RNA: Group II catalytic intron D1-D4-3
RNA sequence: UCCGUCGUGAGGUGGAAUCUGAAAGAAGCUGUAAGCAAAGUUCCGGCUUGAGGAACACGAACCACAUAUAGGCUGAAUUAAGUCGGGCGAGUUUGCAUCACAAAGCGAAGCCCAAUACUACCCGAGGCUUAUACAGUAGAUGUGGCAAGUAUACGGAAUGAAAGCGGUCGCU
Numbered sequence: 001u002c003c004g005u006c007g008u009g010a011g012g013u014g015g016a017a018u019c020u021g022a023a024a025g026a027a028g029c030u031g032u033a034a035g036c037a038a039a040g041u042u043c044c045g046g047c048u049u050g051a052g053g054a055a056c057a058c059g060a061a062c063c064a065c066a067u068a069u070a071g072g073c074u075g076a077a078u079u080a081a082g083u084c085g086g087g088c089g090a091g092u093u094u095g096c097a098u099c100a101c102a103a104a105g106c107g108a109a110g111c112c113c114a115a116u117a118c119u120a121c122c123c124g125a126g127g128c129u130u131a132u133a134c135a136g137u138a139g140a141u142g143u144g145g146c147a148a149g150u151a152u153a154c155g156g157a158a159u160g161a162a163a164g165c166g167g168u169c170g171c172u
Base pairs, nucleotide, nucleotide: 001016002015003014004013005012006011028172030170031169035165036164040159041158042157043156044155045154046150047149048148049147050146062145063144064143065142066141067140072137073136074135079131080130081129082128083127085113086112087111088110091106092105093104094103